[Rfam]
RNA sequence: GGCUAACUAGCACCAGUUCUUCAGUGGCAAGCUUUACGUCCCUGUCUAGCAGCUAAAGCUGCCAGUUGAAGAACUGUUGAAUGUAGC
Numbered sequence: 001g002g003c004u005a006a007c008u009a010g011c012a013c014c015a016g017u018u019c020u021u022c023a024g025u026g027g028c029a030a031g032c033u034u035u036a037c038g039u040c041c042c043u044g045u046c047u048a049g050c051a052g053c054u055a056a057a058g059c060u061g062c063c064a065g066u067u068g069a070a071g072a073a074c075u076g077u078u079g080a081a082u083g084u085a086g087c
Stems, first nucleotide, its partner, number of pairs: 005084001011079002017073006026063003030060007
The record is an 87-nucleotide RNA from Chrysemys picta, which matches "mir-22 microRNA precursor family" in Rfam. Gene Ontology terms of the family: miRNA-mediated post-transcriptional gene silencing and RISC complex. The family's consensus secondary structure was predicted with RNAalifold.